Rfam assigns this 131-nucleotide sequence from Enemella evansiae to the family "FMN riboswitch aptamer (RFN element)". The organism belongs to Enemella, within Bacteria. On this family, see Vitreschak et al., Nucleic Acids Res 2002: "Regulation of riboflavin biosynthesis and transport genes in bacteria by transcriptional and translational attenuation".

RNA sequence: GCACGCGCUCCGGGGUCGGUGCAAUUCCGAACCGGUGGUGACAGUCCACGACCCGGCCACAGCCAGUGGCCGGUUGACCUGGUGGGAUUCCAGGACCGACGGUGAAAGUCCGGAUGGGAGGCAGCGCGUGA
Numbered sequence: 001g002c003a004c005g006c007g008c009u010c011c012g013g014g015g016u017c018g019g020u021g022c023a024a025u026u027c028c029g030a031a032c033c034g035g036u037g038g039u040g041a042c043a044g045u046c047c048a049c050g051a052c053c054c055g056g057c058c059a060c061a062g063c064c065a066g067u068g069g070c071c072g073g074u075u076g077a078c079c080u081g082g083u084g085g086g087a088u089u090c091c092a093g094g095a096c097c098g099a100c101g102g103u104g105a106a107a108g109u110c111c112g113g114a115u116g117g118g119a120g121g122c123a124g125c126g127c128g129u130g131a
Base pairs, nucleotide, nucleotide: 003129004128005127006126007125008124009123010120017029018028019027031109032108033098034097035049036048037047038046044096045095053073054072078094079093080092081091082090100112101111102110